[Rfam]
RNA sequence: UACCGAUAAAGGCAAACUAAUUGAAAGAUGGGGGCGCAAAGCCAUGGGUUUAAAGUCGAAUGUUGUUGUCUAAGAUCGCCAGGUUACCGAA
Number, nucleotide and partner (000 for none) at each position: 001u000002a000003c000004c000005g000006a000007u000008a000009a000010a000011g000012g037013c036014a000015a000016a000017c032018u031019a000020a029021u028022u027023g000024a000025a000026a000027g022028a021029u020030g000031g018032g017033g000034g000035c000036g013037c012038a000039a000040a085041g084042c083043c082044a000045u081046g080047g079048g076049u075050u074051u000052a000053a000054a000055g070056u000057c068058g067059a000060a000061u000062g000063u000064u000065g000066u000067u058068g057069u000070c055071u000072a000073a000074g050075a049076u048077c000078g000079c047080c046081a045082g043083g042084u041085u040086a000087c000088c000089g000090a000091a000

Rfam assigns this 91-nucleotide RNA sequence from Tepidibacillus sp. HK-1 to the family "c-di-GMP-I riboswitch aptamer". Pairs were carried over by alignment from the consensus structure, which is taken from published work. The organism belongs to Tepidibacillus, within Bacteria. From the family's description: GEMM was predicted in a large-scale screen for bacterial structured RNA regulatory elements.